RNA sequence: UCCGGGGGAAGCUCACCGCCGAGGCCACCUACUGGGUGCUGCGUCACCCUCCGCGCCCCGCCUCGGGGAAGGUCUGAGGGAAGGGCCCGCCCGGCGGCUCCAGCAGAGCCCCGCCCGCGACCGGGGCGGGUGAGCCACCAGCAAGGGGGGGCGCCGCGCGAAUUUCCCAAAGGGCCGAUCCUGGGCAGGAGAAGCCGCAGCCGGUUCCGCGCUGGAAGUUCCGCUUUCGGUUCCUUCCUCCGUGAGAGCCCCGGUGGAUGCUCGUGGCCCCGCGGUGCUUUGAGACAGACUCACGGCCGGCGAUAUUGAGUCCAAUGGGUGAGGUGGGGCAGUGCCCUACAACCCAAUUCAGACUACUCUCCCCCGGA
Numbered sequence: 001u002c003c004g005g006g007g008g009a010a011g012c013u014c015a016c017c018g019c020c021g022a023g024g025c026c027a028c029c030u031a032c033u034g035g036g037u038g039c040u041g042c043g044u045c046a047c048c049c050u051c052c053g054c055g056c057c058c059c060g061c062c063u064c065g066g067g068g069a070a071g072g073u074c075u076g077a078g079g080g081a082a083g084g085g086c087c088c089g090c091c092c093g094g095c096g097g098c099u100c101c102a103g104c105a106g107a108g109c110c111c112c113g114c115c116c117g118c119g120a121c122c123g124g125g126g127c128g129g130g131u132g133a134g135c136c137a138c139c140a141g142c143a144a145g146g147g148g149g150g151g152c153g154c155c156g157c158g159c160g161a162a163u164u165u166c167c168c169a170a171a172g173g174g175c176c177g178a179u180c181c182u183g184g185g186c187a188g189g190a191g192a193a194g195c196c197g198c199a200g201c202c203g204g205u206u207c208c209g210c211g212c213u214g215g216a217a218g219u220u221c222c223g224c225u226u227u228c229g230g231u232u233c234c235u236u237c238c239u240c241c242g243u244g245a246g247a248g249c250c251c252c253g254g255u256g257g258a259u260g261c262u263c264g265u266g267g268c269c270c271c272g273c274g275g276u277g278c279u280u281u282g283a284g285a286c287a288g289a290c291u292c293a294c295g296g297c298c299g300g301c302g303a304u305a306u307u308g309a310g311u312c313c314a315a316u317g318g319g320u321g322a323g324g325u326g327g328g329g330c331a332g333u334g335c336c337c338u339a340c341a342a343c344c345c346a347a348u349u350c351a352g353a354c355u356a357c358u359c360u361c362c363c364c365c366g367g368a
Base pairs, nucleotide, nucleotide: 001368002367003366004365007362008361009360012323013322014321015320016319017318020065021064022063023062024061034049035048036047037046038045039043074352075351076350077349078348084298085297086296087295096110097109098108099107100106111129112128113127114126115125116124130294131293132292133291134290136288150279151278152277153276154275155274156273157272158271324340325339326338327337328336329335330334
RNA: Nuclear RNase P